[Rfam]
RNA sequence: AGAGGUUGUGAGGCCAGAGCAGAAAUACUCACGGCAUGGCCUAUCAGAUUCCAAUGAAUCUGUGAAUUCUGCU
Dot-bracket structure: ...........[[[[..(((((((((.........))]]]]...(((((((....)))))))....)))))))